[Rfam]
RNA sequence: UUGCUUCUUGCUUCAACAGUGCUUGAACGGAGCAA
Numbered sequence: 001u002u003g004c005u006u007c008u009u010g011c012u013u014c015a016a017c018a019g020u021g022c023u024u025g026a027a028c029g030g031a032g033c034a035a
Stems, first nucleotide, its partner, number of pairs: 001035005007030002010028001012027005017021001
Dot-bracket structure: (((((.((.(.((((((...).)))))))))))))
The family of this 35-nucleotide RNA from Pogona vitticeps is "Iron response element I". Lineage of the source: Eukaryota > Opisthokonta > Deuterostomia > Squamata > Pogona. The family's consensus secondary structure is taken from published work. The literature on the family includes a 1987 paper in Science by Hentze et al., "Identification of the iron-responsive element for the translational regulation of human ferritin mRNA". Rfam classes the family as a cis-regulatory element. Its family is annotated with response to iron ion in the Gene Ontology.